[Rfam]
A member of the RNA family "Ribosomal protein L10 leader" from Sporanaerobacter sp. PP17-6a, 129 nucleotides long. Rfam classes the family as a cis-regulatory leader. The match comes from Rfam's covariance-model search (75 bits).
RNA sequence: AAUUAUGUAAUAUUUAAGCCGUAGACAGUAGGGACUUAUGGGUUUAAAAAUCCUACCGAGGUGAGAUAAACUGAUCUGUGAGAUUAGGGUCUCUUCCGUAUCUGCGAAGAGGCCUUUUUAUUUUAAAGA
Dot-bracket structure: ...........................(((((((((....))).......))))))...............................(((((((((.........)))))))))...............